[Rfam]
RNA sequence: AUGGAGGAUGCCGAAAAUCCAAAGAAGAGUAGGCG
Numbered sequence: 001a002u003g004g005a006g007g008a009u010g011c012c013g014a015a016a017a018u019c020c021a022a023a024g025a026a027g028a029g030u031a032g033g034c035g
Base pairs, nucleotide, nucleotide: 002021003020004019005018010034011033012032
The family of this 35-nucleotide RNA sequence is "DUF805b RNA". The family's consensus secondary structure is taken from published work. Clan: DUF805 clan.